[Rfam]
Nucleotides: 113
Base pairs, nucleotide, nucleotide: 011076012075013074014073015031016030017029018028019027020026058067059066060065096105097104098103
Number, partner (000 for none) and nucleotide at each position: 001000a002000g003000a004000a005000a006000a007000g008000u009000g010000a011076c012075c013074g014073c015031c016030g017029c018028c019027c020026c021000g022000c023000g024000c025000a026020g027019g028018g029017g030016c031015g032000a033000c034000g035000c036000a037000u038000g039000c040000a041000g042000g043000c044000c045000g046000u047000u048000a049000a050000g051000a052000a053000a054000g055000c056000a057000a058067g059066u060065u061000c062000a063000a064000c065060g066059a067058c068000g069000a070000g071000a072000c073014g074013c075012g076011g077000a078000u079000c080000a081000c082000c083000g084000a085000c086000a087000g088000a089000a090000a091000a092000u093000c094000c095000g096105c097104g098103c099000c100000c101000c102000c103098g104097c105096g106000a107000g108000c109000g110000c111000c112000c113000c